[Rfam]
RNA sequence: AUCACUUUCCAUUCACGACGGAUCGUCCGGCACGUACCUGCCGGUGAAGGAGCAGUAU
Numbered sequence: 001a002u003c004a005c006u007u008u009c010c011a012u013u014c015a016c017g018a019c020g021g022a023u024c025g026u027c028c029g030g031c032a033c034g035u036a037c038c039u040g041c042c043g044g045u046g047a048a049g050g051a052g053c054a055g056u057a058u
Stems, first nucleotide, its partner, number of pairs: 009050002012048004027044006
Shown here is a 58-nucleotide sequence from Aurantimicrobium minutum, a member of the family "msiK RNA". Pairs were carried over by alignment from the consensus structure, which is taken from published work. The match comes from Rfam's covariance-model search (60 bits). It is annotated as a cis-regulatory element.